[Rfam]
RNA: Potassium channel RNA editing signal
Organism: Acanthochromis polyacanthus
RNA sequence: GUAGGUUAUGGAGAUAUUUACCCAAAAACUCUGUUGGGGAAAAUAGUCGGGGGUUUAUGCUGCAUUGCAGGAGUGCUGGUGAUAGCCUUACCUAUCCCCAUCAUUGUGAAUAAC
Numbered sequence: 001g002u003a004g005g006u007u008a009u010g011g012a013g014a015u016a017u018u019u020a021c022c023c024a025a026a027a028a029c030u031c032u033g034u035u036g037g038g039g040a041a042a043a044u045a046g047u048c049g050g051g052g053g054u055u056u057a058u059g060c061u062g063c064a065u066u067g068c069a070g071g072a073g074u075g076c077u078g079g080u081g082a083u084a085g086c087c088u089u090a091c092c093u094a095u096c097c098c099c100a101u102c103a104u105u106g107u108g109a110a111u112a113a114c
Stems, first nucleotide, its partner, number of pairs: 001114002004111001007108005013102003020095001037077002040074001049063001051061001